The record is a 131-nucleotide sequence from Jaculus jaculus, which matches "Small nucleolar RNA SNORA71" in Rfam. A reference for the family is Ganot et al. (1997), "The family of box ACA small nucleolar RNAs is defined by an evolutionarily conserved secondary structure and ubiquitous sequence elements essential for RNA accumulation", Genes Dev. Gene Ontology terms of the family: nucleolus and RNA processing. Pairs were carried over by alignment from the consensus structure, which was predicted with PFOLD. The family's RNA type in Rfam is H/ACA-box small nucleolar RNA. The organism belongs to Jaculus, within Eukaryota. Rfam describes the family as follows. The members of this family belong to the H/ACA class of snoRNAs which bind a number of proteins (including dyskerin, Gar1p and Nop10p) to form snoRNP complexes. This class of snoRNAs are thought to guide the sites of modification of uridines to pseudouridines by forming direct base pairing interactions with substrate RNAs. This family includes U71 (SNORA71), ACA39 (SNORA39) and ACA60 (SNORA60). U71 and ACA60 are predicted to guide the pseudouridylation of U406 and U1004 in 18S rRNA respectively.
[Rfam]
RNA sequence: CCUUGCAUUUGAAAGUGAUCGUGGGAUGCCAAUGCCCUAGUCACUAAGCCUGCAGGGACAGGAUGUAGAAAGCCUUUCCCCAUGUUUGGAAGGUCCCCUCCUGUCCUUGCAACCCUUGGUGAGUUCCUACA
Numbered sequence: 001c002c003u004u005g006c007a008u009u010u011g012a013a014a015g016u017g018a019u020c021g022u023g024g025g026a027u028g029c030c031a032a033u034g035c036c037c038u039a040g041u042c043a044c045u046a047a048g049c050c051u052g053c054a055g056g057g058a059c060a061g062g063a064u065g066u067a068g069a070a071a072g073c074c075u076u077u078c079c080c081c082a083u084g085u086u087u088g089g090a091a092g093g094u095c096c097c098c099u100c101c102u103g104u105c106c107u108u109g110c111a112a113c114c115c116u117u118g119g120u121g122a123g124u125u126c127c128u129a130c131a
Stems, first nucleotide, its partner, number of pairs: 001057007014045006021038001023037003065128001068126003073121001084114001086112003090108004